[Rfam]
RNA: Small nucleolar RNA SNORD16
RNA sequence: UGCUGUGAUGGUGUAAUUUGCGUCCUACUCUGUGACUGGUGACGGAUGCCUACUGUCAUAUGCCGGCACAGAUGGAUGACGAACCUUGAUGCUGAGCA
Numbered sequence: 001u002g003c004u005g006u007g008a009u010g011g012u013g014u015a016a017u018u019u020g021c022g023u024c025c026u027a028c029u030c031u032g033u034g035a036c037u038g039g040u041g042a043c044g045g046a047u048g049c050c051u052a053c054u055g056u057c058a059u060a061u062g063c064c065g066g067c068a069c070a071g072a073u074g075g076a077u078g079a080c081g082a083a084c085c086u087u088g089a090u091g092c093u094g095a096g097c098a
Stems, first nucleotide, its partner, number of pairs: 001098003021081004030071005039063002041057005